[Rfam]
RNA sequence: AAAGCAAACUGGGAAGCGGCGCGCUUCCCGUGUAUGAUUGAACCCGCAAAGGCGCUCACGAACUUUCGGAGCCGCCGGAACCGGGUUCAUUUUUUG
Numbered sequence: 001a002a003a004g005c006a007a008a009c010u011g012g013g014a015a016g017c018g019g020c021g022c023g024c025u026u027c028c029c030g031u032g033u034a035u036g037a038u039u040g041a042a043c044c045c046g047c048a049a050a051g052g053c054g055c056u057c058a059c060g061a062a063c064u065u066u067c068g069g070a071g072c073c074g075c076c077g078g079a080a081c082c083g084g085g086u087u088c089a090u091u092u093u094u095u096g
Stems, first nucleotide, its partner, number of pairs: 010030009039089007
Annotation
This 96-nucleotide sequence from Jejuibacter calystegiae belongs to the Rfam family "sroE RNA". Pairs were carried over by alignment from the consensus structure, which was predicted with PFOLD. The source organism's lineage runs through Bacteria, Pseudomonadati, Gammaproteobacteria, Enterobacterales and Jejuibacter. It scores 59 bits against the family's covariance model. The literature on the family includes a 2003 paper in Nucleic Acids Res by Vogel et al., "RNomics in Escherichia coli detects new sRNA species and indicates parallel transcriptional output in bacteria". Rfam's curators write: This family consists of a number of bacterial sroE RNA genes of around 90 bases in length. sroE is found in several Enterobacterial species but its function is unknown.